[Rfam]
The family of this 129-nucleotide sequence from Xenorhabdus koppenhoeferi is "EFASI RNA". Rfam classes the family as a small RNA.
Nucleotides: 129
Stems, first nucleotide, its partner, number of pairs: 002129004006124006016030005033082003040053004054076003058070005
Number, partner (000 for none) and nucleotide at each position: 001000c002129u003128g004127a005126c006124g007123a008122u009121a010120u011119c012000g013000a014000g015000g016030c017029u018028g019027g020026c021000u022000u023000u024000u025000u026020g027019c028018c029017a030016g031000u032000u033082g034081g035080g036000a037000u038000a039000a040053c041052c042051u043050g044000u045000u046000a047000a048000u049000u050043c051042a052041g053040g054076c055075g056074g057000c058070a059069g060068u061067a062066c063000a064000g065000c066062g067061u068060a069059c070058u071000c072000a073000a074056c075055c076054g077000a078000u079000a080035c081034c082033c083000c084000g085000c086000a087000a088000u089000u090000a091000c092000c093000u094000c095000a096000a097000c098000a099000a100000g101000c102000g103000u104000u105000c106000a107000c108000u109000c110000u111000g112000g113000c114000g115000u116000a117000c118000a119011g120010a121009u122008a123007u124006c125000c126005g127004u128003c129002a